[Rfam]
TPP riboswitch aptamer (THI element): a 102-nucleotide RNA from Pulveribacter suum. Taxonomically the source falls in Pulveribacter (Bacteria, Pseudomonadota, Betaproteobacteria, Burkholderiales).
RNA sequence: CGGACGAAACAGGGGUGCCGCCAUGCCAUGCGCUGGCGGCUGAGAAACACCCUCGCACCCGAUCCAGGUCAUGCUGGCGUGGGGAGUUUUCGCAGCGCGGCG
Numbered sequence: 001c002g003g004a005c006g007a008a009a010c011a012g013g014g015g016u017g018c019c020g021c022c023a024u025g026c027c028a029u030g031c032g033c034u035g036g037c038g039g040c041u042g043a044g045a046a047a048c049a050c051c052c053u054c055g056c057a058c059c060c061g062a063u064c065c066a067g068g069u070c071a072u073g074c075u076g077g078c079g080u081g082g083g084g085a086g087u088u089u090u091c092g093c094a095g096c097g098c099g100g101c102g
Stems, first nucleotide, its partner, number of pairs: 006090005011053004016047001017040007058083004064077004